Description:
Shown here is an 81-nucleotide sequence from Actinokineospora fastidiosa, a member of the family "ZMP/ZTP riboswitch aptamer (pfl RNA motif)". Taxonomically the source falls in Actinokineospora (Bacteria, Bacillati, Actinomycetes, Pseudonocardiaceae).
RNA sequence: AUUGCCGUGCACGACUGGCGUCGGGUGGGCGACCACCGGGGAGUGCGCGUAGAGAAGGCAUCGUCCGCCUGGGUGCCCCUC
Dot-bracket structure: ..(..(((((((..(([[[[....((((....))))..))..)))))))..).....(((((...]]]]..))))).....